[Rfam]
RNA sequence: UAAUGAACUUUUAAGGAGUGAUGGGUGGACGAUGAAGAACUAAUCUUAUUUUUUAAAUUUGAAAUCUCAUAUUUCAAAUCAAUUAAGAAUAGGAUUAGUCUGCCCAUUUGUUUUUAUUAUCGAGCGAUAGAUGCAUAGCGCUUUUUUGCUGUACAUCUGUAUAUAGGUAUAGGUAUGACUAAUCCUUCCAACGCAUCUGGGAGGAUUUUUUU
Numbered sequence: 001u002a003a004u005g006a007a008c009u010u011u012u013a014a015g016g017a018g019u020g021a022u023g024g025g026u027g028g029a030c031g032a033u034g035a036a037g038a039a040c041u042a043a044u045c046u047u048a049u050u051u052u053u054u055a056a057a058u059u060u061g062a063a064a065u066c067u068c069a070u071a072u073u074u075c076a077a078a079u080c081a082a083u084u085a086a087g088a089a090u091a092g093g094a095u096u097a098g099u100c101u102g103c104c105c106a107u108u109u110g111u112u113u114u115u116a117u118u119a120u121c122g123a124g125c126g127a128u129a130g131a132u133g134c135a136u137a138g139c140g141c142u143u144u145u146u147u148g149c150u151g152u153a154c155a156u157c158u159g160u161a162u163a164u165a166g167g168u169a170u171a172g173g174u175a176u177g178a179c180u181a182a183u184c185c186u187u188c189c190a191a192c193g194c195a196u197c198u199g200g201g202a203g204g205a206u207u208u209u210u211u212u
Stems, first nucleotide, its partner, number of pairs: 015115004022106004028100003041097013057079009124160002130157004135152002181207010
Shown here is a 212-nucleotide RNA from Pullulanibacillus camelliae, a member of the family "Bacillus sRNA ncr1575". Rfam classes the family as a small RNA. The base pairs follow the family's consensus structure, which is taken from published work.